[Rfam]
RNA sequence: CAUUAACUUAAUAGUUUCACCUGUAUAACCUCUAGAAUAUGGCUAGAGGGUCUCUACCAGGAACCAUAAAAUCCUGAUUACAGAAAAUGAAUUUAUUCGU
Numbered sequence: 001c002a003u004u005a006a007c008u009u010a011a012u013a014g015u016u017u018c019a020c021c022u023g024u025a026u027a028a029c030c031u032c033u034a035g036a037a038u039a040u041g042g043c044u045a046g047a048g049g050g051u052c053u054c055u056a057c058c059a060g061g062a063a064c065c066a067u068a069a070a071a072u073c074c075u076g077a078u079u080a081c082a083g084a085a086a087a088u089g090a091a092u093u094u095a096u097u098c099g100u
Stems, first nucleotide, its partner, number of pairs: 021083005029049007058076005
RNA: Purine riboswitch aptamer